MIR8024 microRNA precursor family: an 86-nucleotide RNA sequence from Solanum lycopersicum. Rfam links the family to the GO terms miRNA-mediated post-transcriptional gene silencing and RISC complex. The family has 2 seed sequences and 661 matches in Rfam 15.1.
RNA sequence: UUGAAGAAUUUGAAGACUUCUACUUUCAUACUUGAAUAAUUUUAAGACUUCAACUUGGAGACUUAAAGAAUUGCAGGACUCCAACU
Dot-bracket structure: (((.((..((..((..(((.....((((...(((((............)))))..))))......)))..))..))..)).)))..